Small nucleolar RNA U54: an 82-nucleotide RNA sequence from Musa acuminata.
Its Rfam clan is "U54 clan".
RNA sequence: AGCUCGAUGAUCGUAUUCAUUUUUUGAUGAUAUACGCUAUUCUGAGAAAUUUAAAGUGCUGAUAAGAUAGAAUAUGAGAGCU
Number, nucleotide and partner (000 for none) at each position: 001a082002g081003c080004u079005c078006g000007a000008u000009g000010a000011u000012c000013g000014u000015a000016u000017u000018c000019a000020u000021u000022u000023u000024u000025u000026g000027a000028u000029g000030a000031u000032a000033u000034a000035c000036g000037c000038u000039a000040u000041u000042c000043u000044g000045a000046g000047a000048a000049a000050u000051u000052u000053a000054a000055a000056g000057u000058g000059c000060u000061g000062a000063u000064a000065a000066g000067a000068u000069a000070g000071a000072a000073u000074a000075u000076g000077a000078g005079a004080g003081c002082u001
The literature on the family includes a 2003 paper in Nucleic Acids Res by Chen et al., "The high diversity of snoRNAs in plants: identification and comparative study of 120 snoRNA genes from Oryza sativa". The family's RNA type in Rfam is C/D-box small nucleolar RNA. The base pairs follow the family's consensus structure, which was predicted with PFOLD. It scores 57 bits against the family's covariance model. Gene Ontology terms of the family: RNA processing and nucleolus. The source organism's lineage runs through Eukaryota, Magnoliopsida, Mesangiospermae, Liliopsida and Musa acuminata. About the family: U54 is a C/D box small nucleolar RNA, which acts as a methylation guide for 18S ribosomal RNA in plants.